[Rfam]
RNA sequence: AAGUUAGUGAUAAUUAUAAAAAUAAUUAUUCGUUCUGACUUGCUUAAUUUGGGCAUGACAAACCUCUUAUUACAACUAUAGAAUCUGAGUUAC
Numbered sequence: 001a002a003g004u005u006a007g008u009g010a011u012a013a014u015u016a017u018a019a020a021a022a023u024a025a026u027u028a029u030u031c032g033u034u035c036u037g038a039c040u041u042g043c044u045u046a047a048u049u050u051g052g053g054c055a056u057g058a059c060a061a062a063c064c065u066c067u068u069a070u071u072a073c074a075a076c077u078a079u080a081g082a083a084u085c086u087g088a089g090u091u092a093c
Base pairs, nucleotide, nucleotide: 003093004092006091007090
Record summary:
A member of the RNA family "Small nucleolar RNA snoR8a" from Theobroma cacao, 93 nucleotides long. Taxonomically the source falls in Theobroma (Eukaryota, malvids, Malvales, Malvaceae). A reference for the family is Brown et al. (2001), "Multiple snoRNA gene clusters from Arabidopsis", RNA. It is annotated as a C/D-box small nucleolar RNA. A search with the family's covariance model found it, with a score of 50 bits.